[Rfam]
RNA sequence: UUACUGAUGCAAGUUCAGUCGGGGUAGGGACCAAGCCGCCCCGUAGCUAGCAGGCAGACGUCGGCGAAAUCCGGCGUUUGAAGCCCUGUGAAAAUCGUGCCCCGCGCGGCGAAGCAAAUCUGCAGGCCGUAAUGAAA
Numbered sequence: 001u002u003a004c005u006g007a008u009g010c011a012a013g014u015u016c017a018g019u020c021g022g023g024g025u026a027g028g029g030a031c032c033a034a035g036c037c038g039c040c041c042c043g044u045a046g047c048u049a050g051c052a053g054g055c056a057g058a059c060g061u062c063g064g065c066g067a068a069a070u071c072c073g074g075c076g077u078u079u080g081a082a083g084c085c086c087u088g089u090g091a092a093a094a095u096c097g098u099g100c101c102c103c104g105c106g107c108g109g110c111g112a113a114g115c116a117a118a119u120c121u122g123c124a125g126g127c128c129g130u131a132a133u134g135a136a137a
Base pairs, nucleotide, nucleotide: 020043021042022041023040024039050089051088052087053086054085055080056079057078058077059076060075064071096111097110102109103108114130115129
Rfam assigns this 137-nucleotide RNA sequence from Paenibacillus sedimenti to the family "Group II catalytic intron D1-D4-4". The family has 90 seed sequences and 840 matches in Rfam 15.1. The base pairs follow the family's consensus structure.